Rfam assigns this 228-nucleotide RNA from Sorghum bicolor to the family "MIR6217 microRNA precursor family". The organism belongs to Sorghum, within Eukaryota. Pairs were carried over by alignment from the consensus structure, which was predicted with RNAalifold. Its family is annotated with miRNA-mediated post-transcriptional gene silencing and RISC complex in the Gene Ontology.
[Rfam]
RNA sequence: UGGCUACAAAAUAACUUAUUUUGUAGCCACUUUGAGUUACGAUAAUUAUUAUGUUGAUUUAUGAGAUUAUAAUAACUUCUUACUAAGUGGUUUACUAUAAUUUUACGGUAAAUAUCCACAUGCAUUAUAGUAACCCAACUAUCGUAAACAUAUAUAGAUUUUAUCGUAAAUUAGUAUGUAAAAUUAUCGUAAAUGAAGGUGGCUAGAGAAUAACUUAUUUUGUAGCUG
Numbered sequence: 001u002g003g004c005u006a007c008a009a010a011a012u013a014a015c016u017u018a019u020u021u022u023g024u025a026g027c028c029a030c031u032u033u034g035a036g037u038u039a040c041g042a043u044a045a046u047u048a049u050u051a052u053g054u055u056g057a058u059u060u061a062u063g064a065g066a067u068u069a070u071a072a073u074a075a076c077u078u079c080u081u082a083c084u085a086a087g088u089g090g091u092u093u094a095c096u097a098u099a100a101u102u103u104u105a106c107g108g109u110a111a112a113u114a115u116c117c118a119c120a121u122g123c124a125u126u127a128u129a130g131u132a133a134c135c136c137a138a139c140u141a142u143c144g145u146a147a148a149c150a151u152a153u154a155u156a157g158a159u160u161u162u163a164u165c166g167u168a169a170a171u172u173a174g175u176a177u178g179u180a181a182a183a184u185u186a187u188c189g190u191a192a193a194u195g196a197a198g199g200u201g202g203c204u205a206g207a208g209a210a211u212a213a214c215u216u217a218u219u220u221u222g223u224a225g226c227u228g
Stems, first nucleotide, its partner, number of pairs: 001228014016213007024205010037192011050178013065165003069161001071159001073156002080147004087142006093132009103122001107117002